[Rfam]
RNA sequence: GGGUGAUGGGAAGUGUGACAUUCGCAGUGACGCACCGGUUUCCUUAAUGACCGCAUUAAUCCAAGUGUGAAGUAAUGGCUGUGAGCGAAAGUCCCUGGACCGGAGGCUGAGAGAGCUCCAUCCGUAGCACGGGUGUACUCGGAUAUCCAACCCGGAUGGCGUUUGGGCCAGGAGACCGUGAGUGGUUGAGCCUAGGAUGGCCAUCGGUUGACCUCCGGGGUUCGUUGCAAGCAAAGUGACGUUACACAGUGAAGAACAGCACAGGGCUUACUCUCCCAUUGUC
Numbered sequence: 001g002g003g004u005g006a007u008g009g010g011a012a013g014u015g016u017g018a019c020a021u022u023c024g025c026a027g028u029g030a031c032g033c034a035c036c037g038g039u040u041u042c043c044u045u046a047a048u049g050a051c052c053g054c055a056u057u058a059a060u061c062c063a064a065g066u067g068u069g070a071a072g073u074a075a076u077g078g079c080u081g082u083g084a085g086c087g088a089a090a091g092u093c094c095c096u097g098g099a100c101c102g103g104a105g106g107c108u109g110a111g112a113g114a115g116c117u118c119c120a121u122c123c124g125u126a127g128c129a130c131g132g133g134u135g136u137a138c139u140c141g142g143a144u145a146u147c148c149a150a151c152c153c154g155g156a157u158g159g160c161g162u163u164u165g166g167g168c169c170a171g172g173a174g175a176c177c178g179u180g181a182g183u184g185g186u187u188g189a190g191c192c193u194a195g196g197a198u199g200g201c202c203a204u205c206g207g208u209u210g211a212c213c214u215c216c217g218g219g220g221u222u223c224g225u226u227g228c229a230a231g232c233a234a235a236g237u238g239a240c241g242u243u244a245c246a247c248a249g250u251g252a253a254g255a256a257c258a259g260c261a262c263a264g265g266g267c268u269u270a271c272u273c274u275c276c277c278a279u280u281g282u283c
Stems, first nucleotide, its partner, number of pairs: 002283010014246006022085001023083006039071003043067001089269003093266004105117004119135005138219003148210005157203004165193004175186004
Dot-bracket structure: .((((((((((..((((((..(((((((..........(((.(.......................).)))......)))))).)...[[[.[[[[........((((.....)))).(((((.......)))))..(((.......(((((....((((....((((......((((....))))...))))......))))..)))))......))).....................))))))................]]]]]]]....))))))))))

This 283-nucleotide RNA sequence from Acanthocheilonema viteae belongs to the Rfam family "RNase MRP". Pairs were carried over by alignment from the consensus structure, which is taken from published work. It scores 82 bits against the family's covariance model.